[Rfam]
RNA: SAM riboswitch aptamer (S box leader)
Organism: Nocardioides guangzhouensis
RNA sequence: UGCUCAUCCAGAGGGACUGAGGGACCGGCCCUGCGACGUCCCGGCAACCGCCGCGCCCAUCCCGCCGACCACGGCGGCGGACGCGGAAACGGUGCCAAUUCCGGCCCGGCGCGAGAGACGCGUUCCGGGGAAGAUGAGGA
Numbered sequence: 001u002g003c004u005c006a007u008c009c010a011g012a013g014g015g016a017c018u019g020a021g022g023g024a025c026c027g028g029c030c031c032u033g034c035g036a037c038g039u040c041c042c043g044g045c046a047a048c049c050g051c052c053g054c055g056c057c058c059a060u061c062c063c064g065c066c067g068a069c070c071a072c073g074g075c076g077g078c079g080g081a082c083g084c085g086g087a088a089a090c091g092g093u094g095c096c097a098a099u100u101c102c103g104g105c106c107c108g109g110c111g112c113g114a115g116a117g118a119c120g121c122g123u124u125c126c127g128g129g130g131a132a133g134a135u136g137a138g139g140a
Base pairs, nucleotide, nucleotide: 001140003138004137005136006135007134008133013042014041015040016039017038021031022030023029025104026103027102028101043096044095045094046093048092049091052086100132105129106128107127108126109125